[Rfam]
RNA sequence: AUGUUCCUUGUUUCAACAUUGAUUGAACGGGAUCAU
Dot-bracket structure: (((.((((.(.((((((...).)))))))))).)))
Record summary:
Rfam assigns this 36-nucleotide RNA from Oncorhynchus mykiss to the family "Iron response element I". The match comes from Rfam's covariance-model search (37 bits). Its family is annotated with response to iron ion in the Gene Ontology. By type it is a cis-regulatory element. Taxonomically the source falls in Oncorhynchus (Eukaryota, Deuterostomia, Vertebrata, Actinopterygii). The family's consensus secondary structure is taken from published work.